[Rfam]
RNA sequence: UGGUAGAUGCACCCUGAUUUCGCCCUGGAGCUUUAGGCUCUGGGGUGUUUUUUU
Numbered sequence: 001u002g003g004u005a006g007a008u009g010c011a012c013c014c015u016g017a018u019u020u021c022g023c024c025c026u027g028g029a030g031c032u033u034u035a036g037g038c039u040c041u042g043g044g045g046u047g048u049u050u051u052u053u054u
Base pairs, nucleotide, nucleotide: 002013003012004011022046023045024044025043026042027041028040029039030038031037032036
Overview
This 54-nucleotide RNA from Leptolyngbya sp. ES-bin-22 belongs to the Rfam family "Nitrogen stress-induced RNA 1". The literature on the family includes a 2010 paper in J Mol Biol by Ionescu et al., "Heterocyst-specific transcription of NsiR1, a non-coding RNA encoded in a tandem array of direct repeats in cyanobacteria". The pairing is the family consensus, mapped onto this sequence. NCBI's taxonomy places the organism under Bacteria, Cyanophyceae, Leptolyngbyales, Leptolyngbyaceae, Leptolyngbya.